This 95-nucleotide RNA sequence from Methylovirgula sp. 4M-Z18 belongs to the Rfam family "chrB-a RNA". Rfam 15.1 lists 347 matches to the family in 339 species.

RNA sequence: GAUAUGGGGAACAGCGAUCUCCCCACGAGGCGACAAGCUGAAGCAUCGCGUCCCGCUCAUGGGCAUGAGGCCCUCUCAGCAAAGGACGCACCAUG
Number, nucleotide and partner (000 for none) at each position: 001g000002a000003u000004a000005u025006g024007g023008g022009g021010a020011a000012c000013a000014g000015c000016g000017a000018u000019c000020u010021c009022c008023c007024c006025a005026c000027g000028a000029g000030g000031c000032g000033a000034c000035a000036a000037g000038c000039u000040g000041a000042a000043g000044c000045a000046u000047c000048g089049c088050g087051u086052c085053c084054c000055g000056c000057u000058c000059a000060u000061g000062g000063g000064c000065a000066u000067g000068a000069g000070g000071c000072c000073c000074u000075c000076u000077c000078a000079g000080c000081a000082a000083a000084g053085g052086a051087c050088g049089c048090a000091c000092c000093a000094u000095g000
By type it is a cis-regulatory element.
NCBI's taxonomy places the organism under Bacteria, Pseudomonadati, Pseudomonadota, Hyphomicrobiales, Methylovirgula.